[Rfam]
RNA sequence: GGGAAAGUUUCCAUGGGUAGGGUAAGAUAUUUGCUAAAUAUUGUGCGUUUGCACAUAGAUGUUCGAAUCAUCUCUUUCCCG
Numbered sequence: 001g002g003g004a005a006a007g008u009u010u011c012c013a014u015g016g017g018u019a020g021g022g023u024a025a026g027a028u029a030u031u032u033g034c035u036a037a038a039u040a041u042u043g044u045g046c047g048u049u050u051g052c053a054c055a056u057a058g059a060u061g062u063u064c065g066a067a068u069c070a071u072c073u074c075u076u077u078c079c080c081g
Base pairs, nucleotide, nucleotide: 001080002079003078004077005076006075007074009024011022012021026042027041028040029039030038057073058072059071060070061069

Shown here is an 81-nucleotide RNA sequence from Aspergillus nidulans, a member of the family "tRNA". It is one of the family's seed sequences. Taxonomically the source falls in Aspergillus subgen. Nidulantes (Eukaryota, Opisthokonta, Ascomycota, Eurotiales).